[Rfam]
Description:
Shown here is an 87-nucleotide RNA from Rhodopseudomonas sp., a member of the family "chrB-a RNA". The organism belongs to Rhodopseudomonas, within Bacteria. It scores 49 bits against the family's covariance model. The family's RNA type in Rfam is cis-regulatory element.
RNA sequence: GCGAUGGGGACGUGCGAUCUCCCCAUCAGGCGGCACCAUCCGUGUUGCCCAAGUAUCGCGUCCGCUGUCAUGCAAGGACGCGGCAUG
Numbered sequence: 001g002c003g004a005u006g007g008g009g010a011c012g013u014g015c016g017a018u019c020u021c022c023c024c025a026u027c028a029g030g031c032g033g034c035a036c037c038a039u040c041c042g043u044g045u046u047g048c049c050c051a052a053g054u055a056u057c058g059c060g061u062c063c064g065c066u067g068u069c070a071u072g073c074a075a076g077g078a079c080g081c082g083g084c085a086u087g
Base pairs, nucleotide, nucleotide: 005025006024007023008022009021010020058081059080060079061078062077063076